terC RNA: a 56-nucleotide sequence from Rhodopseudomonas palustris.
[Rfam]
RNA sequence: GUCCUGGACCGGGCCCCUCUGGCAGUUCAUCUGAACUGUGAUGUCGGACUGGACGC
Dot-bracket structure: .....((.((((.........(((((((....)))))))....)))).))......
The family's RNA type in Rfam is cis-regulatory element.